RNA sequence: GGCAGUUUUCGGGUGACACACACUGGAAUCGGGCUCCGUCCUCUCUGGUUUGGGAUAUGUCACCUAAGAACUGCA
Number, nucleotide and partner (000 for none) at each position: 001g000002g074003c073004a000005g071006u070007u069008u068009u067010c000011g065012g064013g063014u062015g061016a060017c059018a000019c000020a056021c000022a000023c053024u000025g000026g051027a050028a049029u048030c047031g046032g045033g044034c000035u000036c000037c000038g000039u000040c000041c000042u000043c000044u033045c032046u031047g030048g029049u028050u027051u026052g000053g023054g000055a000056u020057a000058u000059g017060u016061c015062a014063c013064c012065u011066a000067a009068g008069a007070a006071c005072u000073g003074c002075a000

This 75-nucleotide RNA sequence from Myotis lucifugus belongs to the Rfam family "mir-9223 microRNA precursor family". A search with the family's covariance model found it, with a score of 60 bits. NCBI's taxonomy places the organism under Eukaryota, Deuterostomia, Gnathostomata, Euteleostomi, Myotis.